[Rfam]
RNA sequence: UAUGGCAUAAUCUCGCAUUUGGGGCUCACAUACAGUGUAUUAGUUACACAACUAACAGCCUCGGGAAGGUCUGAGAAAACCCGAUAACGUUCUAGCAGGAUGCUUGUAUUUGGCAAGGCGAGAACACCAGAAAUACGCGAAAAAGUUUUUUAGCCAAGGAUUGACUUUGCGCAUAGGCGAUGGAACUUUUCCGUUGGAAUUUUUUGUGGGUAGCGAUUUUAGUUUAAUUUGCGAGCUAGAGCGUUACUAGAACUCAAUUCAGACUAAUCUGUGCCAUA
Numbered sequence: 001u002a003u004g005g006c007a008u009a010a011u012c013u014c015g016c017a018u019u020u021g022g023g024g025c026u027c028a029c030a031u032a033c034a035g036u037g038u039a040u041u042a043g044u045u046a047c048a049c050a051a052c053u054a055a056c057a058g059c060c061u062c063g064g065g066a067a068g069g070u071c072u073g074a075g076a077a078a079a080c081c082c083g084a085u086a087a088c089g090u091u092c093u094a095g096c097a098g099g100a101u102g103c104u105u106g107u108a109u110u111u112g113g114c115a116a117g118g119c120g121a122g123a124a125c126a127c128c129a130g131a132a133a134u135a136c137g138c139g140a141a142a143a144a145g146u147u148u149u150u151u152a153g154c155c156a157a158g159g160a161u162u163g164a165c166u167u168u169g170c171g172c173a174u175a176g177g178c179g180a181u182g183g184a185a186c187u188u189u190u191c192c193g194u195u196g197g198a199a200u201u202u203u204u205u206g207u208g209g210g211u212a213g214c215g216a217u218u219u220u221a222g223u224u225u226a227a228u229u230u231g232c233g234a235g236c237u238a239g240a241g242c243g244u245u246a247c248u249a250g251a252a253c254u255c256a257a258u259u260c261a262g263a264c265u266a267a268u269c270u271g272u273g274c275c276a277u278a
Stems, first nucleotide, its partner, number of pairs: 001278004007272003012235006021062005035049005071262005079211004088102005103117005118207007138193001236250004

Shown here is a 278-nucleotide sequence, a member of the family "Nuclear RNase P". Rfam describes the family as follows. Ribonuclease P (RNase P) is a ubiquitous endoribonuclease, found in archaea, bacteria and eukarya as well as chloroplasts and mitochondria. The base pairs follow the family's consensus structure, which is taken from published work. The family's RNA type in Rfam is ribozyme.